A member of the RNA family "T-box leader" from Bacillus taeanensis, 180 nucleotides long. About the family: Uncharged tRNA acts as the effector for transcription antitermination of genes in the T-box leader family. T-boxes are found upstream of many aminoacyl-tRNA synthetase genes and some amino acid biosynthetic genes usually in Gram-positive bacteria. The base pairs follow the family's consensus structure, which is taken from published work. Rfam links the family to the GO term tRNA binding. For this family Rfam cites "The GA motif: an RNA element common to bacterial antitermination systems, rRNA, and eukaryotic RNAs" (Winkler et al., RNA, 2001). A search with the family's covariance model found it, with a score of 95 bits.
[Rfam]
RNA sequence: UAUGUAACGGUGAAGGAUUUAUAGUAACUAAGAACAGUCUUUUAAAGCGAACCGGGGGUGGUGGAAGCCUGGUAAAGAACCUUAGUGAAACGGCAGUCUUGAGUUACUUUUUUACAAAGUGGAUGUGAAGAGUCACAUCAACUAGGGUGGAACCGCGGGUAAAAAGCUCUCGUCCCUAGG
Numbered sequence: 001u002a003u004g005u006a007a008c009g010g011u012g013a014a015g016g017a018u019u020u021a022u023a024g025u026a027a028c029u030a031a032g033a034a035c036a037g038u039c040u041u042u043u044a045a046a047g048c049g050a051a052c053c054g055g056g057g058g059u060g061g062u063g064g065a066a067g068c069c070u071g072g073u074a075a076a077g078a079a080c081c082u083u084a085g086u087g088a089a090a091c092g093g094c095a096g097u098c099u100u101g102a103g104u105u106a107c108u109u110u111u112u113u114a115c116a117a118a119g120u121g122g123a124u125g126u127g128a129a130g131a132g133u134c135a136c137a138u139c140a141a142c143u144a145g146g147g148u149g150g151a152a153c154c155g156c157g158g159g160u161a162a163a164a165a166g167c168u169c170u171c172g173u174c175c176c177u178a179g180g
Stems, first nucleotide, its partner, number of pairs: 007104002015099004027086006040076003051073006122139007144177004155173005